[Rfam]
RNA sequence: GGCUGGCCCAAAAGUAGUGAGUUAUCUCAAUUGAUUGUUCAUAGUCAGUCACAGAUUGAACUACUUGUUCUAUUCCUUCCCUCUUUCUCACUACUGAACUUAACUGGUUUAAA
Dot-bracket structure: ((((((...((...(((((((......................(..((.....................))..)............))))))...)...))..))))))....